[Rfam]
Shown here is a 127-nucleotide RNA sequence from Rattus norvegicus, a member of the family "Small nucleolar RNA SNORA15". The base pairs follow the family's consensus structure, which was predicted with RNAfold. The family's RNA type in Rfam is H/ACA-box small nucleolar RNA. ACA15 is a member of the H/ACA class of snoRNA that guide the sites of modification of uridines to pseudouridines. Gene Ontology terms of the family: nucleolus and RNA processing. For this family Rfam cites "RNomics: an experimental approach that identifies 201 candidates for novel, small, non-messenger RNAs in mouse" (Huttenhofer et al., EMBO J, 2001). A search with the family's covariance model found it, with a score of 92 bits.
RNA sequence: GCACGCUGAAUACUGUGUUCUUCAGUCAGUAAUUUACAGCCAGACACCAUGCAAAAGUAAAGUCUUCCUUUAAGAUGGUUGAUAUGCUGUAGUUUAUGGUAUAUCACCAUUAAAAGUGAGUACAAGU
Numbered sequence: 001g002c003a004c005g006c007u008g009a010a011u012a013c014u015g016u017g018u019u020c021u022u023c024a025g026u027c028a029g030u031a032a033u034u035u036a037c038a039g040c041c042a043g044a045c046a047c048c049a050u051g052c053a054a055a056a057g058u059a060a061a062g063u064c065u066u067c068c069u070u071u072a073a074g075a076u077g078g079u080u081g082a083u084a085u086g087c088u089g090u091a092g093u094u095u096a097u098g099g100u101a102u103a104u105c106a107c108c109a110u111u112a113a114a115a116g117u118g119a120g121u122a123c124a125a126g127u
Base pairs, nucleotide, nucleotide: 001052002051003050005047013039014038015037016036065120066119067118068116069115070114071113072111073110080106081105082104083103084102085101086100087099088098089097